[Rfam]
RNA sequence: UGCUCUGUAUGGUGUCUGUACCCAGCAGCAUUCUCCUGAUGGGGUGUUCAAAAAGCAGUGCUACAGCAGAGCGGUGUUUGGCAUCUCUGGCUUUCAUUCUGUGUUUGUUGAGCAUGCUUUUUUUGCUGAAACAGUC
Numbered sequence: 001u002g003c004u005c006u007g008u009a010u011g012g013u014g015u016c017u018g019u020a021c022c023c024a025g026c027a028g029c030a031u032u033c034u035c036c037u038g039a040u041g042g043g044g045u046g047u048u049c050a051a052a053a054a055g056c057a058g059u060g061c062u063a064c065a066g067c068a069g070a071g072c073g074g075u076g077u078u079u080g081g082c083a084u085c086u087c088u089g090g091c092u093u094u095c096a097u098u099c100u101g102u103g104u105u106u107g108u109u110g111a112g113c114a115u116g117c118u119u120u121u122u123u124u125g126c127u128g129a130a131a132c133a134g135u136c
Base pairs, nucleotide, nucleotide: 002061003060005058006057007056015054017052018047019046020045021044022043023042024040026038027037028036064125065124066123068121069120070119071117072116073115080105081104082103083102084101
Rfam assigns this 136-nucleotide sequence from Campylorhamphus procurvoides to the family "Small nucleolar RNA SNORA8". Clan: SNORA8 clan. From the family's description: ACA8 is a member of the H/ACA class of snoRNA that guide the sites of modification of uridines to pseudouridines. Its family is annotated with nucleolus and RNA processing in the Gene Ontology. The match comes from Rfam's covariance-model search (78 bits). The base pairs follow the family's consensus structure, which was predicted with RNAfold.